Archaeal large subunit ribosomal RNA: a 578-nucleotide part of an RNA from Sulfolobales archaeon SCGC AB-777_K20. The family's consensus secondary structure is taken from published work. NCBI's taxonomy places the organism under Archaea, Thermoproteati, Thermoproteota, Thermoprotei, Sulfolobales.
Nucleotides: 578
Stems, first nucleotide, its partner, number of pairs: 001574008010566002014561002022395004027391002029387005035189004042181007051154018078136005085119003097110005158169004192205001193203003206228005231334002237289006243269002246264006270279002294320009322331001324329001345373005351368001353367004404445003408442001409439007419429002456531001457529004461523001462520005469494002473488005497509004537555004541550003
Number, partner (000 for none) and nucleotide at each position: 001574c002573c003572c004571c005570c006569g007568a008567c009000c010566c011565c012000g013000a014561g015560a016000g017000a018000a019000g020000a021000c022395c023394c024393c025392g026000u027391g028390g029387a030386g031385c032384u033383u034000c035189a036188c037187c038186g039000c040000a041000g042181c043180c044179u045178g046177g047176c048175g049000u050000u051154g052153g053152c054151u055150c056149c057148c058147g059146g060145g061144g062143g063142u064141u065140c066139a067138u068137g069000c070000g071000u072000a073000g074000c075000g076000u077000a078136g079135g080134u081133g082132g083000g084000a085119g086118g087117g088000g089000u090000c091000g092000a093000a094000g095000c096000c097110g098109c099108u100107c101106c102000u103000c104000c105000g106101g107100g108099g109098g110097c111000g112000g113000u114000g115000g116000a117087c118086c119085c120000g121000a122000a123000a124000g125000u126000g127000a128000a129000a130000c131000a132082c133081c134080a135079c136078c137068c138067a139066u140065g141064g142063a143062c144061c145060c146059u147058c148057g149056g150055g151054a152053g153052c154051c155000u156000u157000a158169c159168c160167c161166c162000g163000c164000a165000a166161g167160g168159g169158g170000g171000a172000c173000a174000g175048c176047g177046u178045c179044a180043g181042g182000u183000g184000g185000g186038c187037g188036g189035u190000u191000c192205g193203g194202c195201u196000g197000g198000g199000g200000c201195g202194g203193c204000a205192c206228u207227c208226c209225c210224g211000c212000g213000a214000a215000a216000a217000g218000a219000u220000a221000a222000c223000a224210c225209g226208g227207g228206a229000g230000c231334c232333c233000a234000a235000a236000g237289g238288u239287c240286g241285g242284c243269u244268c245000a246264g247263g248262c249261g250260g251259u252000a253000c254000a255000g256000a257000a258000c259251g260250c261249c262248g263247c264246c265000g266000u267000a268244g269243a270279g271278u272000g273000c274000a275000a276000g277000g278271g279270c280000a281000a282000a283000a284242g285241c286240c287239g288238g289237c290000c291000u292000g293000a294320c295319g296318a297317g298316g299315c300314c301313c302312u303000u304000c305000a306000a307000a308000g309000c310000a311000c312302g313301g314300g315299g316298c317297c318296u319295c320294g321000a322331c323000g324329c325000g326000a327000a328000a329324g330000c331322g332000c333232g334231g335000c336000c337000u338000a339000g340000c341000g342000a343000a344000c345373g346372c347371u348370c349369g350000u351368g352000c353367c354366c355365c356364c357000a358000c359000a360000c361000g362000u363000g364356g365355g366354g367353g368351c369349c370348g371347g372346g373345c374000a375000u376000g377000a378000c379000a380000g381000a382000a383033a384032a385031g386030u387029u388000a389000c390028c391027c392025c393024g394023g395022g396000g397000a398000u399000a400000a401000c402000a403000g404445g405444g406443u407000c408442g409439u410438c411437g412436c413435g414434g415433g416000u417000g418000a419429g420428a421000g422000c423000u424000c425000a426000c427000a428420u429419c430000g431000a432000c433415c434414c435413c436412g437411c438410g439409g440000u441000u442408u443406g444405c445404u446000a447000c448000a449000u450000c451000g452000a453000u454000g455000u456531c457529g458528g459527c460526u461523c462520u463519u464518c465517c466516c467000a468000c469494c470493c471000u472000g473488g474487g475486g476485g477484u478000g479000c480000a481000g482000c483000u484477g485476c486475c487474c488473c489000c490000a491000a492000g493470g494469g495000u496000a497509g498508g499507g500506c501000u502000g503000c504000c505000c506500g507499c508498c509497c510000g511000u512000u513000a514000a515000a516466g517465g518464g519463g520462a521000g522000c523461g524000u525000g526460a527459g528458c529457u530000g531456g532000g533000u534000u535000u536000a537555g538554a539553c540552c541550g542549u543548c544000g545000c546000g547000a548543g549542a550541c551000a552540g553539g554538u555537c556000g557000g558000a559000c560015u561014c562000u563000a564000a565011g566010g567008g568007u569006c570005g571004g572003g573002g574001g575000u576000g577000c578000u